RNA sequence: GAUCGGCGGCGACGUUGGUGACUGCCAAUACUGUUUCUUGAUCUACAUAUUGACCCCAUGAGGGAAUCAGCCCUCUCGUGGCAGUAGACCGGGCAUCGUACUCGGAAACUUCAAGCGAGAACGCCGAAUCCCAUUUGAAUCAUGAGGUCAGAAGCUGAGGUAAGACGGCGUCGCGGUCGCACU
Numbered sequence: 001g002a003u004c005g006g007c008g009g010c011g012a013c014g015u016u017g018g019u020g021a022c023u024g025c026c027a028a029u030a031c032u033g034u035u036u037c038u039u040g041a042u043c044u045a046c047a048u049a050u051u052g053a054c055c056c057c058a059u060g061a062g063g064g065a066a067u068c069a070g071c072c073c074u075c076u077c078g079u080g081g082c083a084g085u086a087g088a089c090c091g092g093g094c095a096u097c098g099u100a101c102u103c104g105g106a107a108a109c110u111u112c113a114a115g116c117g118a119g120a121a122c123g124c125c126g127a128a129u130c131c132c133a134u135u136u137g138a139a140u141c142a143u144g145a146g147g148u149c150a151g152a153a154g155c156u157g158a159g160g161u162a163a164g165a166c167g168g169c170g171u172c173g174c175g176g177u178c179g180c181a182c183u
Base pairs, nucleotide, nucleotide: 004179005178006177007176009174010173011172012171013170014169015168018166019165034154035153036152037151039150040149041148042147043146044145062132063131064130067127068126070124071123074120075119076118077117078116079115084109085108089105090104091103092102093101

Rfam assigns this 183-nucleotide RNA from Rubidibacter lacunae to the family "6S / SsrS RNA". A search with the family's covariance model found it, with a score of 70 bits. The family's RNA type in Rfam is non-coding RNA gene.